[Rfam]
RNA sequence: AGCAGCUGUGUCAAAUUAGGUGCUUGGCUUACCCAUGGCAGGCACCAGCCCAAAAGGCUGCCACGGUAGCACUGUGACUCAUGGGCCCUGAUCACCUCUCUUGGACCUCAGGGAUAAAUUUGGCCACAGACACCA
Numbered sequence: 001a002g003c004a005g006c007u008g009u010g011u012c013a014a015a016u017u018a019g020g021u022g023c024u025u026g027g028c029u030u031a032c033c034c035a036u037g038g039c040a041g042g043c044a045c046c047a048g049c050c051c052a053a054a055a056g057g058c059u060g061c062c063a064c065g066g067u068a069g070c071a072c073u074g075u076g077a078c079u080c081a082u083g084g085g086c087c088c089u090g091a092u093c094a095c096c097u098c099u100c101u102u103g104g105a106c107c108u109c110a111g112g113g114a115u116a117a118a119u120u121u122g123g124c125c126a127c128a129g130a131c132a133c134c135a
Stems, first nucleotide, its partner, number of pairs: 002061004019046008028037001074127003078123002086113005

Rfam assigns this 135-nucleotide RNA from Galemys pyrenaicus to the family "Small nucleolar RNA SNORA5".
Rfam classes the family as an H/ACA-box small nucleolar RNA.
ACA5 is a member of the H/ACA class of snoRNA that guide the sites of modification of uridines to pseudouridines.
The source organism's lineage runs through Eukaryota, Eumetazoa, Deuterostomia, Talpidae and Galemys.